[Rfam]
RNA sequence: CCGCAGAGUAUAAGCGGUCAGCGUGACGAGGUUUCACCACGCGGGACAUUGCUCUGCAG
Numbered sequence: 001c002c003g004c005a006g007a008g009u010a011u012a013a014g015c016g017g018u019c020a021g022c023g024u025g026a027c028g029a030g031g032u033u034u035c036a037c038c039a040c041g042c043g044g045g046a047c048a049u050u051g052c053u054c055u056g057c058a059g
Stems, first nucleotide, its partner, number of pairs: 005055006015044001018046002021042003024036003
RNA: Xanthine riboswitch aptamer (NMT1 RNA)